[Rfam]
RNA sequence: GGUUUCCAUUGGUGCAAAUCCAAUCAACCUAGAUUUGAGAUGAAAAGCAAUUCCCCAUGGUAUGCAAAUAGUAGCCAAUUAAGCGAGGAAUAGUAU
Numbered sequence: 001g002g003u004u005u006c007c008a009u010u011g012g013u014g015c016a017a018a019u020c021c022a023a024u025c026a027a028c029c030u031a032g033a034u035u036u037g038a039g040a041u042g043a044a045a046a047g048c049a050a051u052u053c054c055c056c057a058u059g060g061u062a063u064g065c066a067a068a069u070a071g072u073a074g075c076c077a078a079u080u081a082a083g084c085g086a087g088g089a090a091u092a093g094u095a096u
Stems, first nucleotide, its partner, number of pairs: 009023004053088002056085001057079002060076001063073003

The record is a 96-nucleotide RNA from Musa balbisiana, which matches "Plastid-rps12 3UTR RNA" in Rfam. Rfam describes the family as follows. Plastid rpl20 is a non-coding RNA (ncRNA) recognised in plastids. The base pairs follow the family's consensus structure, which was predicted with LocARNA. It scores 79 bits against the family's covariance model.